[Rfam]
RNA sequence: UUGCCUUAAACUAAUGAGUAAGGAAAACAAAGUAAUCAGUGGGAACUGGUUGCAGCAUCCAUCAUUAUGAUGCAAUAAUUUUUGGAAGGGUGAUAGGCUGGUCUUGUGUUGACGCUGUUUACUUUGCAGAACUCACAAGUGCGGGCCUUCCUG
Numbered sequence: 001u002u003g004c005c006u007u008a009a010a011c012u013a014a015u016g017a018g019u020a021a022g023g024a025a026a027a028c029a030a031a032g033u034a035a036u037c038a039g040u041g042g043g044a045a046c047u048g049g050u051u052g053c054a055g056c057a058u059c060c061a062u063c064a065u066u067a068u069g070a071u072g073c074a075a076u077a078a079u080u081u082u083u084g085g086a087a088g089g090g091u092g093a094u095a096g097g098c099u100g101g102u103c104u105u106g107u108g109u110u111g112a113c114g115c116u117g118u119u120u121a122c123u124u125u126g127c128a129g130a131a132c133u134c135a136c137a138a139g140u141g142c143g144g145g146c147c148u149u150c151c152u153g
Stems, first nucleotide, its partner, number of pairs: 004023005032053008055073005088152003095148005101142001103139002106136003115129004

Annotation
A member of the RNA family "U12 minor spliceosomal RNA" from Lathyrus oleraceus, 153 nucleotides long. The family is grouped with related families in Rfam's "U2 clan". Taxonomically the source falls in Lathyrus (Eukaryota, Viridiplantae, Gunneridae, Papilionoideae). The family has 62 seed sequences and 2,106 matches in Rfam 15.1.